[Rfam]
RNA sequence: UUAAGGCGAUGAAGCAGGAAGUUGCUGAGCUAUCAGGUAAUUUCUGCGGAGAAUUGUCCUCGCGGGACGAGGGCGA
Numbered sequence: 001u002u003a004a005g006g007c008g009a010u011g012a013a014g015c016a017g018g019a020a021g022u023u024g025c026u027g028a029g030c031u032a033u034c035a036g037g038u039a040a041u042u043u044c045u046g047c048g049g050a051g052a053a054u055u056g057u058c059c060u061c062g063c064g065g066g067a068c069g070a071g072g073g074c075g076a
Base pairs, nucleotide, nucleotide: 014047015046016045018044019043020042021041025036026035027034028033055075056074057073058072059071060070061069062068
Record summary: Rfam assigns this 76-nucleotide RNA sequence from Mogibacterium sp. CM50 to the family "S10-Clostridia ribosomal protein leader". It scores 43 bits against the family's covariance model. Pairs were carried over by alignment from the consensus structure, which is taken from published work.